[Rfam]
RNA sequence: CGAUGGGGUAGAGGUUGCGGCUUUCAUCAGUAUUCCGUACGAGGUGCGGAGAAGACUGUCGACUCCGGAAGAAAGGGAAUGCCGCCGAAGUUUCCCCGUAUUCUCCGAACGGGGAGGCUGGGUCUGUCACCGAAAGGGACAGGACUGUCACGUGACCGUUGCGGUACUCGUGAUGCGCUAUCUUCAUG
Numbered sequence: 001c002g003a004u005g006g007g008g009u010a011g012a013g014g015u016u017g018c019g020g021c022u023u024u025c026a027u028c029a030g031u032a033u034u035c036c037g038u039a040c041g042a043g044g045u046g047c048g049g050a051g052a053a054g055a056c057u058g059u060c061g062a063c064u065c066c067g068g069a070a071g072a073a074a075g076g077g078a079a080u081g082c083c084g085c086c087g088a089a090g091u092u093u094c095c096c097c098g099u100a101u102u103c104u105c106c107g108a109a110c111g112g113g114g115a116g117g118c119u120g121g122g123u124c125u126g127u128c129a130c131c132g133a134a135a136g137g138g139a140c141a142g143g144a145c146u147g148u149c150a151c152g153u154g155a156c157c158g159u160u161g162c163g164g165u166a167c168u169c170g171u172g173a174u175g176c177g178c179u180a181u182c183u184u185c186a187u188g
Stems, first nucleotide, its partner, number of pairs: 006183006017085005023079003033070005039064001089119011120146002123143006130136001148173005154167001
Rfam assigns this 188-nucleotide RNA from Paludifilum halophilum to the family "Lysine riboswitch aptamer". Gene Ontology term of the family: lysine biosynthetic process. About the family: Riboswitches are metabolite binding domains within certain messenger RNAs that serve as precision sensors for their corresponding targets. Allosteric rearrangement of mRNA structure is mediated by ligand binding, and this results in modulation of gene expression. This family includes riboswitches that sense lysine in a number of genes involved in lysine metabolism, including lysC. The family's consensus secondary structure is taken from published work.